Notes
The family of this 159-nucleotide sequence from Coprococcus eutactus is "Clostridiales-1 RNA". It scores 110 bits against the family's covariance model.
[Rfam]
RNA sequence: CGUUAAAAUCCCGUCAAGCGCGCACAUGCGAGAGCUUGCUCGCGGCAUGUAGCGCAUUUGACGGGAUGACGCGACAUGAACACGAAGGCCGAUAAGCCGGAGUGUGAAUGCCGCGUAGAAUUGCGGGAGCACGAAGUGCGAAGCAAUUCUGUAUUAACG
Numbered sequence: 001c002g003u004u005a006a007a008a009u010c011c012c013g014u015c016a017a018g019c020g021c022g023c024a025c026a027u028g029c030g031a032g033a034g035c036u037u038g039c040u041c042g043c044g045g046c047a048u049g050u051a052g053c054g055c056a057u058u059u060g061a062c063g064g065g066a067u068g069a070c071g072c073g074a075c076a077u078g079a080a081c082a083c084g085a086a087g088g089c090c091g092a093u094a095a096g097c098c099g100g101a102g103u104g105u106g107a108a109u110g111c112c113g114c115g116u117a118g119a120a121u122u123g124c125g126g127g128a129g130c131a132c133g134a135a136g137u138g139c140g141a142a143g144c145a146a147u148u149c150u151g152u153a154u155u156a157a158c159g
Stems, first nucleotide, its partner, number of pairs: 001159006010065004015060004020055004024050006030043001032041003070115004075110003080105004087098003118149007129139004
Source information
Taxonomically the source falls in Coprococcus (Bacteria, Bacillati, Clostridia, Lachnospiraceae). The family's consensus secondary structure is taken from published work.